Record summary
c-di-GMP-I riboswitch aptamer: an 85-nucleotide sequence from Bacillus sp. PK3_68.
RNA sequence: CUGAUGAAAAGGCAAACUUAUUGAAAAAUAAGGACGCAAAGCCACGGGUCUAAAGUUUACAGACAAUGAUAGCCGGGCUGCCAAA
Numbered sequence: 001c002u003g004a005u006g007a008a009a010a011g012g013c014a015a016a017c018u019u020a021u022u023g024a025a026a027a028a029u030a031a032g033g034a035c036g037c038a039a040a041g042c043c044a045c046g047g048g049u050c051u052a053a054a055g056u057u058u059a060c061a062g063a064c065a066a067u068g069a070u071a072g073c074c075g076g077g078c079u080g081c082c083a084a085a
Base pairs, nucleotide, nucleotide: 012037013036017032018031019030020029021028022027040079041078042077043076045075046074047073048070049069050068055064056063057062